[Rfam]
RNA sequence: GUAUGUUCUCAGGGCGGGGUGAAAUUCCCCACCGGCGGUAAAUCACUUCUGUGAAAGCCCGCGAGCGCCCUCCUGAAAUGAGGGGUCAGCAGAUCCGGCGAGACUCCGGAGCCGACGGUUAAAGUCCGGAUGAAAGAGAGCGGGA
Numbered sequence: 001g002u003a004u005g006u007u008c009u010c011a012g013g014g015c016g017g018g019g020u021g022a023a024a025u026u027c028c029c030c031a032c033c034g035g036c037g038g039u040a041a042a043u044c045a046c047u048u049c050u051g052u053g054a055a056a057g058c059c060c061g062c063g064a065g066c067g068c069c070c071u072c073c074u075g076a077a078a079u080g081a082g083g084g085g086u087c088a089g090c091a092g093a094u095c096c097g098g099c100g101a102g103a104c105u106c107c108g109g110a111g112c113c114g115a116c117g118g119u120u121a122a123a124g125u126c127c128g129g130a131u132g133a134a135a136g137a138g139a140g141c142g143g144g145a
Base pairs, nucleotide, nucleotide: 004142005141006140007139008138009137010136017029018028019027031125032124033114034113035062036061037060038059057112058111065090066089094110095109096108097107098106116128117127118126
FMN riboswitch aptamer (RFN element): a 145-nucleotide sequence from Profundibacter amoris. The source organism's lineage runs through Bacteria, Pseudomonadota, Alphaproteobacteria, Paracoccaceae and Profundibacter. It scores 119 bits against the family's covariance model.